RNA: Small nucleolar RNA SNORD66
RNA sequence: UUUCUGUGAUGGCUACUUUUGUGUGUCAACUUGACUGGGACACAGAGUGCCCAAUGAAA
Numbered sequence: 001u002u003u004c005u006g007u008g009a010u011g012g013c014u015a016c017u018u019u020u021g022u023g024u025g026u027c028a029a030c031u032u033g034a035c036u037g038g039g040a041c042a043c044a045g046a047g048u049g050c051c052c053a054a055u056g057a058a059a
Stems, first nucleotide, its partner, number of pairs: 001059004